[Rfam]
RNA: Selenocysteine insertion sequence 1
RNA sequence: ACUGCCCCAUGACAGCUGGGUCUGAAAUCCUAGAUGGACCCAGUUUGAUGUCUUUGCAGU
Numbered sequence: 001a002c003u004g005c006c007c008c009a010u011g012a013c014a015g016c017u018g019g020g021u022c023u024g025a026a027a028u029c030c031u032a033g034a035u036g037g038a039c040c041c042a043g044u045u046u047g048a049u050g051u052c053u054u055u056g057c058a059g060u
Stems, first nucleotide, its partner, number of pairs: 001060005014045010028034002